[Rfam]
Overview
Rfam assigns this 108-nucleotide RNA sequence from Lacrimispora saccharolytica to the family "TPP riboswitch aptamer (THI element)". A search with the family's covariance model found it, with a score of 65 bits. Rfam links the family to the GO term thiamine pyrophosphate binding. Vitamin B(1) in its active form thiamin pyrophosphate (TPP) is an essential coenzyme that is synthesised by coupling of pyrimidine and thiazole moieties in bacteria.
RNA sequence: AGUGCCACAAGAGGGAGCUCGUAGGCGGGCUGAGAGGAAGUCAUCAACUUCGACCUUUAUAACCUGAUUUGGGUAAUGCCAACGUAGGGAUUUAUAUGGGAUGAUUGU
Numbered sequence: 001a002g003u004g005c006c007a008c009a010a011g012a013g014g015g016a017g018c019u020c021g022u023a024g025g026c027g028g029g030c031u032g033a034g035a036g037g038a039a040g041u042c043a044u045c046a047a048c049u050u051c052g053a054c055c056u057u058u059a060u061a062a063c064c065u066g067a068u069u070u071g072g073g074u075a076a077u078g079c080c081a082a083c084g085u086a087g088g089g090a091u092u093u094a095u096a097u098g099g100g101a102u103g104a105u106u107g108u
Stems, first nucleotide, its partner, number of pairs: 007095001009093002011057004017030005037051005063088004069082004